[Rfam]
RNA sequence: GCGGGAGAGGUUCGCAAUCUCCCUCUAUAAAAAACUAAGGUCUA
Number, nucleotide and partner (000 for none) at each position: 001g000002c000003g000004g000005g000006a026007g025008a024009g023010g022011u000012u000013c000014g000015c000016a036017a000018u000019c000020u000021c000022c010023c009024u008025c007026u006027a000028u000029a000030a000031a000032a000033a000034a000035c000036u016037a000038a000039g000040g000041u000042c000043u000044a000